[Rfam]
RNA: L31-Firmicutes ribosomal protein leader
Organism: Lacticaseibacillus thailandensis
RNA sequence: CUCUGGGUCAGGCAAUGGCUCAGGGCGAAGGAG
Numbered sequence: 001c002u003c004u005g006g007g008u009c010a011g012g013c014a015a016u017g018g019c020u021c022a023g024g025g026c027g028a029a030g031g032a033g
Base pairs, nucleotide, nucleotide: 001025002024003023004022005021008018009017010016